The family of this 79-nucleotide RNA from Cinara cedri is "mir-67 microRNA precursor family". The base pairs follow the family's consensus structure, which was predicted with RNAalifold. The source organism's lineage runs through Eukaryota, Opisthokonta, Dicondylia, Aphididae and Cinara. The literature on the family includes a 2008 paper in Insect Biochem Mol Biol by Cao et al., "Identification of conserved microRNAs in Bombyx mori (silkworm) and regulation of fibroin L chain production by microRNAs in heterologous system". Its family is annotated with miRNA-mediated post-transcriptional gene silencing and RISC complex in the Gene Ontology.
RNA sequence: AUUCAGAGUUACUCACUCAAUUUGGAUGUGAUGUUCAAAUUGGUGCCACCACAACCUCCUUGAGUGAGCGACUCGGGAA
Numbered sequence: 001a002u003u004c005a006g007a008g009u010u011a012c013u014c015a016c017u018c019a020a021u022u023u024g025g026a027u028g029u030g031a032u033g034u035u036c037a038a039a040u041u042g043g044u045g046c047c048a049c050c051a052c053a054a055c056c057u058c059c060u061u062g063a064g065u066g067a068g069c070g071a072c073u074c075g076g077g078a079a
Stems, first nucleotide, its partner, number of pairs: 009070001012068009024056002027053004032048002
Dot-bracket structure: ........(..(((((((((...((.((((.((.............)).)))).))...))))))))).).........